[Rfam]
RNA sequence: UCAACGAUACCGCAAACCAUUCGAAAGGAUGGGACGCAAAGCCAAGGGCCUUCUGCACAGCAGGUGGUAGCCGGUUACCGAA
Number, nucleotide and partner (000 for none) at each position: 001u000002c000003a000004a000005c000006g000007a000008u000009a000010c000011c000012g037013c036014a000015a000016a000017c032018c031019a030020u029021u028022c027023g000024a000025a000026a000027g022028g021029a020030u019031g018032g017033g000034a000035c000036g013037c012038a000039a000040a076041g075042c074043c073044a000045a000046g072047g071048g068049c067050c066051u062052u000053c060054u059055g000056c000057a000058c000059a054060g053061c000062a051063g000064g000065u000066g050067g049068u048069a000070g000071c047072c046073g043074g042075u041076u040077a000078c000079c000080g000081a000082a000
Shown here is an 82-nucleotide sequence from Petrocella atlantisensis, a member of the family "c-di-GMP-I riboswitch aptamer". The organism belongs to Petrocella, within Bacteria.